The record is a 132-nucleotide RNA sequence from Oppiella nova, which matches "U4atac minor spliceosomal RNA" in Rfam. Rfam links the family to the GO terms U4atac snRNP, spliceosomal tri-snRNP complex assembly and mRNA 5'-splice site recognition. Rfam classes the family as a spliceosomal small nuclear RNA. Clan: U4 clan. Lineage of the source: Eukaryota > Metazoa > Protostomia > Brachypylina > Oppiella.
[Rfam]
RNA sequence: UCUGUUCUCGUCCAUAGGGGGGCACAGCUGUGGCAGUGAUCGCAAAGUGAGCCCAGUUUUGCUGACAACCCAUACAUAAACCGCAUCUCUUAUCCCUCUUCAGGGACAAGCAUUGAUGCAAUUUUUGACAGA
Numbered sequence: 001u002c003u004g005u006u007c008u009c010g011u012c013c014a015u016a017g018g019g020g021g022g023c024a025c026a027g028c029u030g031u032g033g034c035a036g037u038g039a040u041c042g043c044a045a046a047g048u049g050a051g052c053c054c055a056g057u058u059u060u061g062c063u064g065a066c067a068a069c070c071c072a073u074a075c076a077u078a079a080a081c082c083g084c085a086u087c088u089c090u091u092a093u094c095c096c097u098c099u100u101c102a103g104g105g106a107c108a109a110g111c112a113u114u115g116a117u118g119c120a121a122u123u124u125u126u127g128a129c130a131g132a
Stems, first nucleotide, its partner, number of pairs: 005021005022062003027057004032053003041047001083119005089110003093106005